[Rfam]
This 65-nucleotide RNA from Dipodomys ordii belongs to the Rfam family "Selenocysteine insertion sequence 1". The family's consensus secondary structure is taken from published work. By type it is a cis-regulatory element. A reference for the family is Lambert et al. (2002), "A survey of metazoan selenocysteine insertion sequences", Biochimie. The source organism's lineage runs through Eukaryota, Opisthokonta, Deuterostomia, Glires and Dipodomys.
RNA sequence: GUGUGUGAAUGAUAACUACUGACGAAAGAGCUACCCACUCAGUUAGUGGUUGGAUGUUGCCACAU
Dot-bracket structure: (((((........((((((((((....(((.......))).)))))))))).........)))))
Numbered sequence: 001g002u003g004u005g006u007g008a009a010u011g012a013u014a015a016c017u018a019c020u021g022a023c024g025a026a027a028g029a030g031c032u033a034c035c036c037a038c039u040c041a042g043u044u045a046g047u048g049g050u051u052g053g054a055u056g057u058u059g060c061c062a063c064a065u
Stems, first nucleotide, its partner, number of pairs: 001065005014051010028040003